Shown here is a 71-nucleotide RNA from Gossypium klotzschianum, a member of the family "Small nucleolar RNA Z105". It is annotated as a C/D-box small nucleolar RNA. For this family Rfam cites "The high diversity of snoRNAs in plants: identification and comparative study of 120 snoRNA genes from Oryza sativa" (Chen et al., Nucleic Acids Res, 2003). The family has 11 seed sequences and 621 matches in Rfam 15.1. The match comes from Rfam's covariance-model search (67 bits).
[Rfam]
RNA sequence: AAGGCAUGAUGAUGAAUUUCUUUUAAAAAAUCUGAUUAUUUUGAUGAUUAAUUACCUCCUACUCAUUCUGA
Numbered sequence: 001a002a003g004g005c006a007u008g009a010u011g012a013u014g015a016a017u018u019u020c021u022u023u024u025a026a027a028a029a030a031u032c033u034g035a036u037u038a039u040u041u042u043g044a045u046g047a048u049u050a051a052u053u054a055c056c057u058c059c060u061a062c063u064c065a066u067u068c069u070g071a
Stems, first nucleotide, its partner, number of pairs: 006066004028049002032043001